The record is a 120-nucleotide RNA from Herbaspirillum sp. Sphag64, which matches "Manganese Mn2+ riboswitch aptamer (yybP-ykoY)" in Rfam. Taxonomically the source falls in Herbaspirillum (Bacteria, Pseudomonadota, Betaproteobacteria, Burkholderiales). A search with the family's covariance model found it, with a score of 75 bits. About the family: This RNA was originally discovered in E. coli during a large scale screen and was named SraF. The family was later found to exist upstream of related families of protein genes in many bacteria, including the the yybP and ykoK genes in B. subtilis.

[Rfam]
Nucleotides: 120
Stems, first nucleotide, its partner, number of pairs: 025064003066106010083096005
Number, partner (000 for none) and nucleotide at each position: 001000g002000c003000g004000c005000c006000g007000g008000u009000c010000a011000u012000u013000g014000g015000g016000g017000a018000g019000u020000a021000g022000u023000c024000g025064c026063c027062c028000u029000g030000u031000a032000u033000u034000g035000c036000a037000c038000g039000u040000g041000u042000u043000g044000c045000a046000a047000c048000g049000u050000g051000c052000a053000c054000a055000a056000g057000c058000c059000c060000g061000c062027g063026g064025g065000g066106g067105c068104u069103u070102a071101c072100g073099u074098c075097a076000a077000c078000a079000u080000a081000c082000u083096u084095g085094a086093u087092c088000c089000a090000u091000a092087g093086a094085u095084c096083a097075u098074g099073g100072c101071g102070u103069a104068a105067g106066c107000a108000c109000u110000u111000c112000u113000a114000a115000g116000a117000a118000c119000g120000u